[Rfam]
RNA sequence: GCCAACGAUAUGAAUUUCCUUCGUAUAUCCUCGAUAAUAUGGAUCGAGAGUCUCUACCGGGCCACCGUAAAAGGCCUGACUAUGAAGGCAGAGUUUCUAUGU
Numbered sequence: 001g002c003c004a005a006c007g008a009u010a011u012g013a014a015u016u017u018c019c020u021u022c023g024u025a026u027a028u029c030c031u032c033g034a035u036a037a038u039a040u041g042g043a044u045c046g047a048g049a050g051u052c053u054c055u056a057c058c059g060g061g062c063c064a065c066c067g068u069a070a071a072a073g074g075c076c077u078g079a080c081u082a083u084g085a086a087g088g089c090a091g092a093g094u095u096u097c098u099a100u101g102u
Base pairs, nucleotide, nucleotide: 018088019087020086021085022084023083024082025081030048031047032046033045034044035043058078059077060076061075062074063073
RNA: Purine riboswitch aptamer